[Rfam]
RNA: mir-375 microRNA precursor family
Organism: Notodromas monacha
RNA sequence: CAUCGCUUGAGCCCGUCGAAUAAAAUGAAGGGAUGAAAGUUUUGUUCGUCCGGCUCGAGUUAUUG
Numbered sequence: 001c002a003u004c005g006c007u008u009g010a011g012c013c014c015g016u017c018g019a020a021u022a023a024a025a026u027g028a029a030g031g032g033a034u035g036a037a038a039g040u041u042u043u044g045u046u047c048g049u050c051c052g053g054c055u056c057g058a059g060u061u062a063u064u065g
Stems, first nucleotide, its partner, number of pairs: 002063002005060009017048002020045004025040002